[Rfam]
RNA sequence: GCCAGUGAUAUUGUCCUGUCACAGCAGUACUUUCUCAGUUUACUGCUGUUUCGGGACAUUUGCAUUGUC
Number, nucleotide and partner (000 for none) at each position: 001g000002c000003c067004a066005g065006u064007g000008a000009u000010a000011u000012u058013g057014u056015c055016c054017u053018g052019u000020c000021a000022c048023a047024g046025c045026a044027g043028u042029a041030c000031u000032u000033u000034c000035u000036c000037a000038g000039u000040u000041u029042a028043c027044u026045g025046c024047u023048g022049u000050u000051u000052c018053g017054g016055g015056a014057c013058a012059u000060u000061u000062g000063c000064a006065u005066u004067g003068u000069c000
RNA: mir-1000 microRNA precursor family
Organism: Hermetia illucens